Selenocysteine insertion sequence 1: a 64-nucleotide RNA sequence from Jaculus jaculus. It scores 37 bits against the family's covariance model.
RNA sequence: UUUGCAUUGAUGAGGGCAGAAACAUAAACUAUGACCUAGGGGUUUCUGUCGGAUACCUAGUAAU
Numbered sequence: 001u002u003u004g005c006a007u008u009g010a011u012g013a014g015g016g017c018a019g020a021a022a023c024a025u026a027a028a029c030u031a032u033g034a035c036c037u038a039g040g041g042g043u044u045u046c047u048g049u050c051g052g053a054u055a056c057c058u059a060g061u062a063a064u
Stems, first nucleotide, its partner, number of pairs: 002063004015050009029039003